[Rfam]
RNA sequence: ACCAAACUUCAGGGACAGGUGAAAUUCCGUACCGGCGGUGAAAGCCCGCGAGCCGAAAGGUUGAUCUGGUGAGAUUCCAGAGCCGACAGUUAAAGUCUGGAUGGGAGAAGCAUGAU
Numbered sequence: 001a002c003c004a005a006a007c008u009u010c011a012g013g014g015a016c017a018g019g020u021g022a023a024a025u026u027c028c029g030u031a032c033c034g035g036c037g038g039u040g041a042a043a044g045c046c047c048g049c050g051a052g053c054c055g056a057a058a059g060g061u062u063g064a065u066c067u068g069g070u071g072a073g074a075u076u077c078c079a080g081a082g083c084c085g086a087c088a089g090u091u092a093a094a095g096u097c098u099g100g101a102u103g104g105g106a107g108a109a110g111c112a113u114g115a116u
Stems, first nucleotide, its partner, number of pairs: 003114002007110004018028002031096002033085002035049004044083002052061003065081005087099003
The record is a 116-nucleotide RNA sequence from Anoxynatronum buryatiense, which matches "FMN riboswitch aptamer (RFN element)" in Rfam. The RFN element is a highly conserved domain that is found frequently in the 5'-untranslated regions of prokaryotic mRNAs that encode for flavin mononucleotide (FMN) biosynthesis and transport proteins. The family has 146 seed sequences and 6,230 matches in Rfam 15.1. The match comes from Rfam's covariance-model search (107 bits).